[Rfam]
RNA sequence: UCACUGGUAACGGUGGGGUCUGGAGGAAGCCGAAGGGGGAGCUUGGAACAUAACGAAAGUGAACCGAGGUUGGCCUUACAGGUGGGUAACCCUGCUAAAUAGGGGAAAGCCCGAAAGCUGGAUAACCUGAAAGGUUAGGACGGAUGCGUUCAAGCUCAGGCAAGCAGA
Numbered sequence: 001u002c003a004c005u006g007g008u009a010a011c012g013g014u015g016g017g018g019u020c021u022g023g024a025g026g027a028a029g030c031c032g033a034a035g036g037g038g039g040a041g042c043u044u045g046g047a048a049c050a051u052a053a054c055g056a057a058a059g060u061g062a063a064c065c066g067a068g069g070u071u072g073g074c075c076u077u078a079c080a081g082g083u084g085g086g087u088a089a090c091c092c093u094g095c096u097a098a099a100u101a102g103g104g105g106a107a108a109g110c111c112c113g114a115a116a117g118c119u120g121g122a123u124a125a126c127c128u129g130a131a132a133g134g135u136u137a138g139g140a141c142g143g144a145u146g147c148g149u150u151c152a153a154g155c156u157c158a159g160g161c162a163a164g165c166a167g168a
Stems, first nucleotide, its partner, number of pairs: 001016006030167001032165001036161001041155006049146003064143003073135003077131001079129005084112004090105004
Source information
Shown here is a 168-nucleotide RNA from Pelotomaculum schinkii, a member of the family "Group II catalytic intron D1-D4-3". Rfam describes the family as follows. Group II introns are found in rRNA, tRNA and mRNA of organelles in fungi, plants and protists, and also in mRNA in bacteria. Rfam links the family to the GO term Group II intron splicing. A search with the family's covariance model found it, with a score of 71 bits. The pairing is the family consensus, mapped onto this sequence.